[Rfam]
Nucleotides: 091
Base pairs, nucleotide, nucleotide: 002046005044006043007042008041009040010039011038014036015035016034017033020030053091054090055089056088057087058086059085060084061083062082063081064080065079066078067077068076
Number, partner (000 for none) and nucleotide at each position: 001000a002046c003000c004000c005044c006043u007042u008041g009040c010039u011038c012000g013000u014036g015035u016034g017033a018000u019000c020030g021000u022000c023000u024000u025000c026000u027000c028000a029000c030020c031000g032000c033017u034016c035015a036014c037000c038011g039010g040009g041008c042007a043006g044005g045000u046002g047000g048000a049000g050000a051000c052000g053091g054090a055089c056088g057087g058086g059085g060084g061083c062082c063081c064080g065079c066078g067077c068076g069000g070000u071000c072000g073000u074000g075000a076068c077067g078066c079065g080064c081063g082062g083061g084060c085059c086058c087057c088056c089055g090054u091053c